The family of this 78-nucleotide RNA sequence from Sphingomonas sp. Leaf198 is "Fluoride riboswitch aptamer (crcB RNA motif)". Pairs were carried over by alignment from the consensus structure, which is taken from published work. The match comes from Rfam's covariance-model search (43 bits).
[Rfam]
RNA sequence: GCGGCCGAAGGCGAUGGAUUUCCGCCUGGCUAUGUUGGCCGAACCGCCCUCGCAAGGGCCGAUGAUUCCUACCGGGCG
Numbered sequence: 001g002c003g004g005c006c007g008a009a010g011g012c013g014a015u016g017g018a019u020u021u022c023c024g025c026c027u028g029g030c031u032a033u034g035u036u037g038g039c040c041g042a043a044c045c046g047c048c049c050u051c052g053c054a055a056g057g058g059c060c061g062a063u064g065a066u067u068c069c070u071a072c073c074g075g076g077c078g
Stems, first nucleotide, its partner, number of pairs: 010026004016069003020065002046059004